[Rfam]
RNA sequence: AAAUAUACAAAAUUUGAAAGCCAUAUAAGCCGGUAAUAUGGUCCGGUGUCUCUAUAGCUGACCUGAAAUCAGCUGCUAUGGGUGAAACUAAAUUGUUU
Numbered sequence: 001a002a003a004u005a006u007a008c009a010a011a012a013u014u015u016g017a018a019a020g021c022c023a024u025a026u027a028a029g030c031c032g033g034u035a036a037u038a039u040g041g042u043c044c045g046g047u048g049u050c051u052c053u054a055u056a057g058c059u060g061a062c063c064u065g066a067a068a069u070c071a072g073c074u075g076c077u078a079u080g081g082g083u084g085a086a087a088c089u090a091a092a093u094u095g096u097u098u
Stems, first nucleotide, its partner, number of pairs: 019083001021081005029047005056074006